Plastid-rps18 3UTR RNA: a 57-nucleotide RNA sequence from Hanabusaya asiatica. The family's RNA type in Rfam is cis-regulatory element. About the family: Plastid rps18 is a non-coding RNA (ncRNA) present in plastids. It was identified as a short stem-loop motif in the 3 prime untranslate region (3UTR) of rps18 gene.

RNA sequence: CGAAAGUAUUUUACGAUUAAGAAGCAACUGUCUCUUAUAUAAAUCGUGAAUUAAUCU
Dot-bracket structure: .................(((((.((....)).)))))....................
Annotation
The base pairs follow the family's consensus structure, which was predicted with LocARNA. Rfam 15.1 lists 1,462 matches to the family in 409 species.